[Rfam]
RNA: Small nucleolar RNA snoR27
Organism: Olea europaea
RNA sequence: UUUGGAUCGGUGAUGAUACUAAAAAAACGCGCUGUCUAUCUGCAACUUCCUCGAAGGAAUUGAUGAGCCGAUGCGGUCUGAGGUCCAAG
Numbered sequence: 001u002u003u004g005g006a007u008c009g010g011u012g013a014u015g016a017u018a019c020u021a022a023a024a025a026a027a028c029g030c031g032c033u034g035u036c037u038a039u040c041u042g043c044a045a046c047u048u049c050c051u052c053g054a055a056g057g058a059a060u061u062g063a064u065g066a067g068c069c070g071a072u073g074c075g076g077u078c079u080g081a082g083g084u085c086c087a088a089g
Stems, first nucleotide, its partner, number of pairs: 001089007